[Rfam]
RNA sequence: GCGAUUGUGGUGAAGUGGUUAACACGUCGGAUUGUGGCUCCGAUAUUCGAGGGUUCGAUUCCCUUCAGUCGCC
Numbered sequence: 001g002c003g004a005u006u007g008u009g010g011u012g013a014a015g016u017g018g019u020u021a022a023c024a025c026g027u028c029g030g031a032u033u034g035u036g037g038c039u040c041c042g043a044u045a046u047u048c049g050a051g052g053g054u055u056c057g058a059u060u061c062c063c064u065u066c067a068g069u070c071g072c073c
Stems, first nucleotide, its partner, number of pairs: 001072007010025003027043005049065005
Dot-bracket structure: (((((((..(((..........))).(((((.......))))).....(((((.......)))))))))))).
tRNA: a 73-nucleotide sequence from a Mycoplasmatota bacterium.
It scores 63 bits against the family's covariance model.